[Rfam]
RNA sequence: AAUAAAGCUAAGAAAAGAAAAUCAUUUUGGACGUUCUAUACAGAGAGCCGGUGGAGAUGAGAACCGGCAGGAAACGAUAAAAUGAAAAUGGUCUUGGAGCAGUUAGAAUGAGAUAAAAUCGAGUUCUAAACGGUAAAAGCACCCGUUACAGUGCAACAGUUGUUAGACUGGCAGAGGUAUUUGGAGUGAUCCAACUACAAAAAUGGGUGGUAACACGGCAUCAUCGACUUUAAUGAUCGUCCCAAAA
Numbered sequence: 001a002a003u004a005a006a007g008c009u010a011a012g013a014a015a016a017g018a019a020a021a022u023c024a025u026u027u028u029g030g031a032c033g034u035u036c037u038a039u040a041c042a043g044a045g046a047g048c049c050g051g052u053g054g055a056g057a058u059g060a061g062a063a064c065c066g067g068c069a070g071g072a073a074a075c076g077a078u079a080a081a082a083u084g085a086a087a088a089u090g091g092u093c094u095u096g097g098a099g100c101a102g103u104u105a106g107a108a109u110g111a112g113a114u115a116a117a118a119u120c121g122a123g124u125u126c127u128a129a130a131c132g133g134u135a136a137a138a139g140c141a142c143c144c145g146u147u148a149c150a151g152u153g154c155a156a157c158a159g160u161u162g163u164u165a166g167a168c169u170g171g172c173a174g175a176g177g178u179a180u181u182u183g184g185a186g187u188g189a190u191c192c193a194a195c196u197a198c199a200a201a202a203a204u205g206g207g208u209g210g211u212a213a214c215a216c217g218g219c220a221u222c223a224u225c226g227a228c229u230u231u232a233a234u235g236a237u238c239g240u241c242c243c244a245a246a247a
Stems, first nucleotide, its partner, number of pairs: 007100002015095004024083006036071002047068006103129007131145003177198003181194003204244004215240004
About this RNA
A member of the RNA family "T-box leader" from Atopococcus tabaci, 247 nucleotides long. Rfam links the family to the GO term tRNA binding. The family's consensus secondary structure is taken from published work. Taxonomically the source falls in Atopococcus (Bacteria, Bacillota, Lactobacillales, Carnobacteriaceae). The match comes from Rfam's covariance-model search (96 bits).